[Rfam]
The record is an 82-nucleotide RNA sequence from Podarcis muralis, which matches "Small nucleolar RNA MBII-202" in Rfam. On this family, see Huttenhofer et al., EMBO J 2001: "RNomics: an experimental approach that identifies 201 candidates for novel, small, non-messenger RNAs in mouse". Its family is annotated with RNA processing and nucleolus in the Gene Ontology. A search with the family's covariance model found it, with a score of 62 bits. The base pairs follow the family's consensus structure, which was predicted with PFOLD.
RNA sequence: UGAUGAAAAUUCUCCGGAAUCGCUGUACCACAUUGAUGACCCUUUGAACCCAUAUAAGCUGAUGGCUGUAGCUUUUUUUAUU
Number, nucleotide and partner (000 for none) at each position: 001u000002g082003a081004u080005g079006a078007a000008a000009a000010u000011u000012c000013u000014c000015c000016g000017g000018a000019a000020u000021c000022g000023c000024u000025g000026u000027a000028c000029c000030a000031c000032a000033u000034u000035g000036a000037u000038g000039a000040c000041c000042c000043u000044u000045u000046g000047a000048a000049c000050c000051c000052a000053u000054a000055u000056a000057a000058g000059c000060u000061g000062a000063u000064g000065g000066c000067u000068g000069u000070a000071g000072c000073u000074u000075u000076u000077u000078u006079u005080a004081u003082u002